Shown here is an 88-nucleotide RNA from Anaerocolumna sedimenticola, a member of the family "c-di-GMP-I riboswitch aptamer". The source organism's lineage runs through Bacteria, Clostridia, Lachnospirales, Lachnospiraceae and Anaerocolumna. A search with the family's covariance model found it, with a score of 54 bits. Its family is annotated with cyclic-di-GMP binding in the Gene Ontology. The base pairs follow the family's consensus structure, which is taken from published work.
RNA sequence: UAGAGUAAAGGGCACGCCCGGUGAAAACCUGGGACGCAAAGUAAAGGGUCAAAGCGUUUUAGGACGUUUAGAUAACCUGGCUGUCAAA
Number, nucleotide and partner (000 for none) at each position: 001u000002a000003g000004a000005g000006u000007a000008a000009a000010g000011g000012g037013c036014a000015c000016g000017c032018c031019c000020g029021g028022u027023g000024a000025a000026a000027a022028c021029c020030u000031g018032g017033g000034a000035c000036g013037c012038a000039a000040a082041g081042u080043a000044a000045a078046g077047g076048g073049u072050c071051a000052a000053a000054g000055c066056g065057u064058u063059u000060u000061a000062g000063g058064a057065c056066g055067u000068u000069u000070a000071g050072a049073u048074a000075a000076c047077c046078u045079g000080g042081c041082u040083g000084u000085c000086a000087a000088a000